Shown here is a 37-nucleotide RNA sequence from Trichechus manatus, a member of the family "CRISPR RNA direct repeat element". The base pairs follow the family's consensus structure, which was predicted with WAR. Rfam links the family to the GO term defense response. The match comes from Rfam's covariance-model search (38 bits).
RNA sequence: GUAAUACUUAUUUACUAAAUAAUUUAGUAAGUAAAAC
Numbered sequence: 001g002u003a004a005u006a007c008u009u010a011u012u013u014a015c016u017a018a019a020u021a022a023u024u025u026a027g028u029a030a031g032u033a034a035a036a037c
Stems, first nucleotide, its partner, number of pairs: 005033004010028003